[Rfam]
RNA sequence: CUAUAUAGCACCUGCAUUGUACACACUGUGUGUGUUAACUGGAAAUGCACAGCGCAUACAAUGUGGAUUCUGUAGAA
Numbered sequence: 001c002u003a004u005a006u007a008g009c010a011c012c013u014g015c016a017u018u019g020u021a022c023a024c025a026c027u028g029u030g031u032g033u034g035u036u037a038a039c040u041g042g043a044a045a046u047g048c049a050c051a052g053c054g055c056a057u058a059c060a061a062u063g064u065g066g067a068u069u070c071u072g073u074a075g076a077a
Base pairs, nucleotide, nucleotide: 012066013065015063016062017061018060019059020058021057024054026052027051028050029049030048031047
Dot-bracket structure: ...........((.(((((((..(.((((((...............)))))).)..))))))).))...........
Shown here is a 77-nucleotide RNA sequence from Gallus gallus, a member of the family "mir-460 microRNA precursor family". Gene Ontology terms of the family: RISC complex and miRNA-mediated post-transcriptional gene silencing. On this family, see Xu et al., FEBS Lett 2006: "Identification of microRNAs from different tissues of chicken embryo and adult chicken". The sequence is in the family's curated seed alignment.